Bacillaceae-1 RNA: a 65-nucleotide RNA sequence from Domibacillus mangrovi. It is annotated as a small RNA. The family has 95 seed sequences and 5,721 matches in Rfam 15.1.

RNA sequence: UGAAUAGGAACUCAGGUAAAGAGCACCGCGUCCUGCGGCAAUACGUGAGUGACCGGCUCUGCCUG
Numbered sequence: 001u002g003a004a005u006a007g008g009a010a011c012u013c014a015g016g017u018a019a020a021g022a023g024c025a026c027c028g029c030g031u032c033c034u035g036c037g038g039c040a041a042u043a044c045g046u047g048a049g050u051g052a053c054c055g056g057c058u059c060u061g062c063c064u065g
Base pairs, nucleotide, nucleotide: 011049012048013047014046016044017043026038027037028036029035053065055063056062057061